[Rfam]
small nucleolar RNA snoR134: a 140-nucleotide RNA from Cucurbita maxima. Pairs were carried over by alignment from the consensus structure, which was predicted with RNAalifold. The organism belongs to Cucurbita, within Eukaryota. The literature on the family includes a 2009 paper in Nucleic Acids Res by Chen and Wu, "Mining small RNA sequencing data: a new approach to identify small nucleolar RNAs in Arabidopsis". Its family is annotated with RNA processing and nucleolus in the Gene Ontology. It scores 105 bits against the family's covariance model.
RNA sequence: UUGCACGACGCACCCCGGGCUACUCUGAUUUAUCUCCAUGACGGUGAUAGCCCCAUUGCUCGUGCUAGAGUGCAGCCGUUUAGUGUUGCAGGUUUGCCUUGCUUCCACGGCUUAUCUGUGUCAAAAUAACGGCGAGAUUC
Number, nucleotide and partner (000 for none) at each position: 001u000002u000003g065004c064005a063006c062007g061008a060009c000010g059011c058012a000013c000014c000015c000016c000017g053018g052019g051020c050021u049022a000023c046024u044025c043026u000027g000028a000029u000030u000031u000032a000033u000034c000035u000036c000037c000038a000039u000040g000041a000042c000043g025044g024045u000046g023047a000048u000049a021050g020051c019052c018053c017054c000055a000056u000057u000058g011059c010060u008061c007062g006063u005064g004065c003066u000067a000068g000069a000070g000071u000072g000073c000074a000075g133076c132077c131078g130079u129080u128081u000082a000083g000084u123085g122086u000087u120088g119089c118090a117091g116092g115093u000094u000095u000096g111097c110098c109099u000100u000101g000102c000103u000104u000105c000106c000107a000108c000109g098110g097111c096112u000113u000114a000115u092116c091117u090118g089119u088120g087121u000122c085123a084124a000125a000126a000127u000128a080129a079130c078131g077132g076133c075134g000135a000136g000137a000138u000139u000140c000